[Rfam]
RNA sequence: GCAUCGUCGACGGGAGAAUCCGGGGUCAACCCGGUGCCGAAGGAGCAACCGCCCCGGUAAACUCUCAGGCCAAAGGACCGUCGCCGGGGA
Numbered sequence: 001g002c003a004u005c006g007u008c009g010a011c012g013g014g015a016g017a018a019u020c021c022g023g024g025g026u027c028a029a030c031c032c033g034g035u036g037c038c039g040a041a042g043g044a045g046c047a048a049c050c051g052c053c054c055c056g057g058u059a060a061a062c063u064c065u066c067a068g069g070c071c072a073a074a075g076g077a078c079c080g081u082c083g084c085c086g087g088g089g090a
Stems, first nucleotide, its partner, number of pairs: 006085001008083006020034004036070003039066002043064003049057002
Shown here is a 90-nucleotide RNA from Rhodobacteraceae bacterium CCMM004, a member of the family "Glycine riboswitch aptamer". Pairs were carried over by alignment from the consensus structure. Rfam links the family to the GO term glycine biosynthetic process.